[Rfam]
RNA sequence: UUAAACAGAUAAGCUUUUUGCUUGGAUUAUGUUUCAUGCUUCUGUAUAAGACGAGCAUAAAGCUUGUUUGUUAGAAG
Numbered sequence: 001u002u003a004a005a006c007a008g009a010u011a012a013g014c015u016u017u018u019u020g021c022u023u024g025g026a027u028u029a030u031g032u033u034u035c036a037u038g039c040u041u042c043u044g045u046a047u048a049a050g051a052c053g054a055g056c057a058u059a060a061a062g063c064u065u066g067u068u069u070g071u072u073a074g075a076a077g
Base pairs, nucleotide, nucleotide: 004072005071006070008068009067011065012064013063014062015061016060017059020056023053024052027049028048029047030046031045032044
This 77-nucleotide sequence from Eleutherodactylus coqui belongs to the Rfam family "mir-208 microRNA precursor family". On this family, see Linsen et al., BMC Genomics 2010: "Small RNA expression and strain specificity in the rat". The family's consensus secondary structure was predicted with RNAalifold. Lineage of the source: Eukaryota > Opisthokonta > Craniata > Neobatrachia > Eleutherodactylus. The match comes from Rfam's covariance-model search (74 bits). Gene Ontology terms of the family: RISC complex and miRNA-mediated post-transcriptional gene silencing.